[Rfam]
RNA sequence: UUUGGGAAAUGAUGCUUAGAUCCAAACUAUGUUAUCUUAAUUUUCCAUGCUGAAUGCAUGCUUGCACGUCAGUCUGAUCCCAAA
Numbered sequence: 001u002u003u004g005g006g007a008a009a010u011g012a013u014g015c016u017u018a019g020a021u022c023c024a025a026a027c028u029a030u031g032u033u034a035u036c037u038u039a040a041u042u043u044u045c046c047a048u049g050c051u052g053a054a055u056g057c058a059u060g061c062u063u064g065c066a067c068g069u070c071a072g073u074c075u076g077a078u079c080c081c082a083a084a
Stems, first nucleotide, its partner, number of pairs: 001084007
The record is an 84-nucleotide RNA from Nelumbo nucifera, which matches "Small nucleolar RNA Z122" in Rfam. NCBI's taxonomy places the organism under Eukaryota, Tracheophyta, Mesangiospermae, Nelumbonaceae, Nelumbo. The family has 23 seed sequences and 822 matches in Rfam 15.1. The family's RNA type in Rfam is C/D-box small nucleolar RNA.